[Rfam]
RNA: Small nucleolar RNA R21
RNA sequence: AUCCCAAUGAUGAAUGAUAUGAAAAAAAUGUUAAAAGUAGUGACUGAUUAUACCUUGAUUACUAGUCAAUUCUGAGGGAUU
Numbered sequence: 001a002u003c004c005c006a007a008u009g010a011u012g013a014a015u016g017a018u019a020u021g022a023a024a025a026a027a028a029u030g031u032u033a034a035a036a037g038u039a040g041u042g043a044c045u046g047a048u049u050a051u052a053c054c055u056u057g058a059u060u061a062c063u064a065g066u067c068a069a070u071u072c073u074g075a076g077g078g079a080u081u
Stems, first nucleotide, its partner, number of pairs: 001080005